[Rfam]
RNA sequence: GCCAGCCCCUCGUGCGGCGUGUAUCUCGUGAACCUCCCCAGGGCCGGAAGGCAGCAAGGAUAAGCGGGCUCUGACGGGUGCACGGGGGGUCCUUUCA
Numbered sequence: 001g002c003c004a005g006c007c008c009c010u011c012g013u014g015c016g017g018c019g020u021g022u023a024u025c026u027c028g029u030g031a032a033c034c035u036c037c038c039c040a041g042g043g044c045c046g047g048a049a050g051g052c053a054g055c056a057a058g059g060a061u062a063a064g065c066g067g068g069c070u071c072u073g074a075c076g077g078g079u080g081c082a083c084g085g086g087g088g089g090u091c092c093u094u095u096c097a
Base pairs, nucleotide, nucleotide: 005090006089007088008087009086010085011084012083013082014081015078018076019075020074025068026067027066028065029064035060036059037058043052044051045050
Rfam assigns this 97-nucleotide RNA sequence from Actinoplanes sp. OR16 to the family "Bacterial small signal recognition particle RNA". On this family, see Righetti et al., Proc Natl Acad Sci U S A 2016: "Temperature-responsive in vitro RNA structurome of Yersinia pseudotuberculosis". Its family is annotated with signal recognition particle, plasma membrane targeting and SRP-dependent cotranslational protein targeting to membrane, signal sequence recognition in the Gene Ontology. Clan: SRP clan. The family's consensus secondary structure is taken from published work. The signal recognition particle (SRP) is a universally conserved ribonucleoprotein involved in the co-translational targeting of proteins to membranes. It scores 62 bits against the family's covariance model.